Overview
The record is a 126-nucleotide RNA sequence from Erinaceus europaeus, which matches "Small nucleolar RNA SNORA3/SNORA45 family" in Rfam. Rfam's curators write: The members of this family belong to the H/ACA class of snoRNAs which are thought to guide the sites of modification of uridines to pseudouridines. This family includes mouse snoMBI-28 and human homologues ACA3 (SNORA3) and ACA3-2 (SNORA45). Both ACA3 and ACA3-2 share the same host gene. MBI-28, ACA3 and ACA3-2 are all predicted to guide the pseudouridylation of residues in 28S rRNA. The literature on the family includes a 2001 paper in EMBO J by Huttenhofer et al., "RNomics: an experimental approach that identifies 201 candidates for novel, small, non-messenger RNAs in mouse".

RNA sequence: GCCAUGAUAGAGUCUUGCCCGGGCAUGCUGUUGCCUCGACAUGCUGGAGUCUUCGGAGAGCAGCUACUGGCCUUAUUCACUGGCUGUGACCCCGUGGCCGAGCUGGUCAACAGGCCAGGGACAGGC
Numbered sequence: 001g002c003c004a005u006g007a008u009a010g011a012g013u014c015u016u017g018c019c020c021g022g023g024c025a026u027g028c029u030g031u032u033g034c035c036u037c038g039a040c041a042u043g044c045u046g047g048a049g050u051c052u053u054c055g056g057a058g059a060g061c062a063g064c065u066a067c068u069g070g071c072c073u074u075a076u077u078c079a080c081u082g083g084c085u086g087u088g089a090c091c092c093c094g095u096g097g098c099c100g101a102g103c104u105g106g107u108c109a110a111c112a113g114g115c116c117a118g119g120g121a122c123a124g125g126c
Base pairs, nucleotide, nucleotide: 002056003055004053006050008048011045012044014043016041017040019038022035023034024033025032067118068117069116070115071114072113073112079107080106081105082104083103085101088098090096
Lineage of the source: Eukaryota > Deuterostomia > Tetrapoda > Eulipotyphla > Erinaceus. The family is grouped with related families in Rfam's "SNORA3 clan".